Description:
This 102-nucleotide sequence from Anoxybacillus flavithermus belongs to the Rfam family "Purine riboswitch aptamer". The source organism's lineage runs through Bacteria, Bacillati, Bacillota, Bacilli and Anoxybacillus. Gene Ontology term of the family: purine nucleobase biosynthetic process. Rfam 15.1 lists 4,097 matches to the family in 1,411 species. It scores 94 bits against the family's covariance model. Rfam describes the family as follows. Riboswitches are metabolite binding domains within certain messenger RNAs that serve as precision sensors for their corresponding targets.

RNA sequence: AUGAAUACGUUGUUGAACCCUCAUAUAAUUUUGGGGAUAUGGCCCAAAAGUCUCUACCCAAUAACCGUAAAUUAUUGGACUAUGAGGGAAAGGAUCUUAUUG
Numbered sequence: 001a002u003g004a005a006u007a008c009g010u011u012g013u014u015g016a017a018c019c020c021u022c023a024u025a026u027a028a029u030u031u032u033g034g035g036g037a038u039a040u041g042g043c044c045c046a047a048a049a050g051u052c053u054c055u056a057c058c059c060a061a062u063a064a065c066c067g068u069a070a071a072u073u074a075u076u077g078g079a080c081u082a083u084g085a086g087g088g089a090a091a092g093g094a095u096c097u098u099a100u101u102g
Base pairs, nucleotide, nucleotide: 018088019087020086021085022084023083024082025081029049030048031047032046033045034044035043058078059077060076061075062074063073064072